[Rfam]
The record is a 68-nucleotide RNA from Musca domestica, which matches "mir-2 microRNA precursor family" in Rfam. Its family is annotated with miRNA-mediated post-transcriptional gene silencing and RISC complex in the Gene Ontology. Rfam 15.1 lists 918 matches to the family in 280 species. The base pairs follow the family's consensus structure, which was predicted with PFOLD. A reference for the family is Lee and Ambros (2001), "An extensive class of small RNAs in Caenorhabditis elegans", Science.

RNA sequence: UAACUCUUCAAGAUGUUGUGAAAUGUUAAUAUUUUUCGAUCAUAUCACAGCCAUUUUGAUGAGUUAUG
Numbered sequence: 001u002a003a004c005u006c007u008u009c010a011a012g013a014u015g016u017u018g019u020g021a022a023a024u025g026u027u028a029a030u031a032u033u034u035u036u037c038g039a040u041c042a043u044a045u046c047a048c049a050g051c052c053a054u055u056u057u058g059a060u061g062a063g064u065u066a067u068g
Stems, first nucleotide, its partner, number of pairs: 005062002008059007015051007024044003